Nuclear RNase P: a 412-nucleotide sequence from Coniella lustricola. Taxonomically the source falls in Coniella (Eukaryota, Pezizomycotina, leotiomyceta, Sordariomycetidae). From the family's description: Ribonuclease P (RNase P) is a ubiquitous endoribonuclease, found in archaea, bacteria and eukarya as well as chloroplasts and mitochondria. Its best characterised activity is the generation of mature 5'-ends of tRNAs by cleaving the 5'-leader elements of precursor-tRNAs. Cellular RNase Ps are ribonucleoproteins. RNA from bacterial RNase Ps retains its catalytic activity in the absence of the protein subunit, i.e. it is a ribozyme. The family's consensus secondary structure is taken from published work. On this family, see Frank et al., RNA 2000: "Phylogenetic-comparative analysis of the eukaryal ribonuclease P RNA".

RNA sequence: ACCACCCUCAACGCUACCCUUCUAUGCUACACACGGAGAGACUUGCGCAAGCAACGUCUCUCGAGCCUCCAGGGGCUAUCUUCUGGCAUGUGAGAAAUUCGGAGUAUAUCCCACUGGCCAGGUCUUUGCCUGCGCCGCCCGACCGCUCGAUGCUGGUGCUUGCGUCAGCGCCGAGUGUUGACGGUCCUGCCGGUGACGGCACGAGGUAUCUUGCCUCCGCAGUUGGCAUCAGAAAAGCAGGGCGCUGGCUGUCUCUGUUCACGCGGGGUGCCAGUUCAGUUGUUCCUCUGGGAGAGUCACUGCCGGGAUUGCUUGCAACGACAAGCUGAAGCGCAAUGGGUGGCGUGCUGUCGACCCUCUCCUCGUGAGAGGCGAGACUGCAUCAUUCAAUUCCGAUCAUUCUCUGGGUGGU
Numbered sequence: 001a002c003c004a005c006c007c008u009c010a011a012c013g014c015u016a017c018c019c020u021u022c023u024a025u026g027c028u029a030c031a032c033a034c035g036g037a038g039a040g041a042c043u044u045g046c047g048c049a050a051g052c053a054a055c056g057u058c059u060c061u062c063g064a065g066c067c068u069c070c071a072g073g074g075g076c077u078a079u080c081u082u083c084u085g086g087c088a089u090g091u092g093a094g095a096a097a098u099u100c101g102g103a104g105u106a107u108a109u110c111c112c113a114c115u116g117g118c119c120a121g122g123u124c125u126u127u128g129c130c131u132g133c134g135c136c137g138c139c140c141g142a143c144c145g146c147u148c149g150a151u152g153c154u155g156g157u158g159c160u161u162g163c164g165u166c167a168g169c170g171c172c173g174a175g176u177g178u179u180g181a182c183g184g185u186c187c188u189g190c191c192g193g194u195g196a197c198g199g200c201a202c203g204a205g206g207u208a209u210c211u212u213g214c215c216u217c218c219g220c221a222g223u224u225g226g227c228a229u230c231a232g233a234a235a236a237g238c239a240g241g242g243c244g245c246u247g248g249c250u251g252u253c254u255c256u257g258u259u260c261a262c263g264c265g266g267g268g269u270g271c272c273a274g275u276u277c278a279g280u281u282g283u284u285c286c287u288c289u290g291g292g293a294g295a296g297u298c299a300c301u302g303c304c305g306g307g308a309u310u311g312c313u314u315g316c317a318a319c320g321a322c323a324a325g326c327u328g329a330a331g332c333g334c335a336a337u338g339g340g341u342g343g344c345g346u347g348c349u350g351u352c353g354a355c356c357c358u359c360u361c362c363u364c365g366u367g368a369g370a371g372g373c374g375a376g377a378c379u380g381c382a383u384c385a386u387u388c389a390a391u392u393c394c395g396a397u398c399a400u401u402c403u404c405u406g407g408g409u410g411g412u
Stems, first nucleotide, its partner, number of pairs: 001412004011403001015343001018340003023090004036062006100395005108309004188201005203217005220302003224299004239287003345383004350378002